[Rfam]
RNA sequence: GUCGGUCUUCGGUAGUGGCCUCCCGGCGCGUCGCCGGCGGGCUUCGAUCGAUGACCGCC
Numbered sequence: 001g002u003c004g005g006u007c008u009u010c011g012g013u014a015g016u017g018g019c020c021u022c023c024c025g026g027c028g029c030g031u032c033g034c035c036g037g038c039g040g041g042c043u044u045c046g047a048u049c050g051a052u053g054a055c056c057g058c059c
Stems, first nucleotide, its partner, number of pairs: 001059001003057005009051005017043005023037006
RNA: Actino-pnp RNA